[Rfam]
RNA sequence: UGAUACACAAGGGUCAAGAAAUCAGAACUCUUAUCCUGCUUGCAGGAUAAGAAUUCUGACUUGUUGACCCGCUCAUACAUGAGGAAGCAGCGAUUUUCCUUUGGAAAAUCAGCGGAUUCCGAAUGUAUGUAGAAUCGUGGGAGUUGCGAAGCAACAAACAAUUCGUAUGUCA
Numbered sequence: 001u002g003a004u005a006c007a008c009a010a011g012g013g014u015c016a017a018g019a020a021a022u023c024a025g026a027a028c029u030c031u032u033a034u035c036c037u038g039c040u041u042g043c044a045g046g047a048u049a050a051g052a053a054u055u056c057u058g059a060c061u062u063g064u065u066g067a068c069c070c071g072c073u074c075a076u077a078c079a080u081g082a083g084g085a086a087g088c089a090g091c092g093a094u095u096u097u098c099c100u101u102u103g104g105a106a107a108a109u110c111a112g113c114g115g116a117u118u119c120c121g122a123a124u125g126u127a128u129g130u131a132g133a134a135u136c137g138u139g140g141g142a143g144u145u146g147c148g149a150a151g152c153a154a155c156a157a158a159c160a161a162u163u164c165g166u167a168u169g170u171c172a
Base pairs, nucleotide, nucleotide: 001172002171003170004169005168007166012069013068014067015066019062020061022059023058024057025056026055027054029052030051031050032049033048034047035046036045037044038043074129075128076127077126078125079124080123083120084119085118086117090113091112092110093109094108095107096106097105098104099103132164133163134162135161137159138158143155144154145153146152
Rfam assigns this 172-nucleotide RNA from Roseburia zhanii to the family "Clostridiales-1 RNA". Rfam classes the family as a small RNA. The source organism's lineage runs through Bacteria, Clostridia, Lachnospirales, Lachnospiraceae and Roseburia.